[Rfam]
RNA sequence: AAUCCCUACGGUGCAACUCAGGUCCGCCGCAUCUCCUGGGUCCGUGGGGCCGGCCGGCGUGGCAGCAAGUCGAAGAGUGGCCUCCUCGUAUACUUGUCGCCCGCCGGCCACUCC
Numbered sequence: 001a002a003u004c005c006c007u008a009c010g011g012u013g014c015a016a017c018u019c020a021g022g023u024c025c026g027c028c029g030c031a032u033c034u035c036c037u038g039g040g041u042c043c044g045u046g047g048g049g050c051c052g053g054c055c056g057g058c059g060u061g062g063c064a065g066c067a068a069g070u071c072g073a074a075g076a077g078u079g080g081c082c083u084c085c086u087c088g089u090a091u092a093c094u095u096g097u098c099g100c101c102c103g104c105c106g107g108c109c110a111c112u113c114c
Base pairs, nucleotide, nucleotide: 004049005048006047007046008045009044010043017040018039019038020037021036022035052109053108054107055106056105057104058103059102061101062100063099

Rfam assigns this 114-nucleotide RNA sequence from Roseibium limicola to the family "EcpR1".
It is annotated as a small RNA.
Perviously named SmelC291, SmrC10, or Sra33. According to its overproduction phenotype it was renamed Elongated Cell Phenotype RNA1. Induced by stress,EcpR1 negatively regulates cell cycle master regulatory genes dnaA and gcrA at post-transcriptional level by base pairing between its strongly conserved GC-rich loop and the target mRNAs. It's regulation is hfq-independent but requires RNase E to regulate dnaA.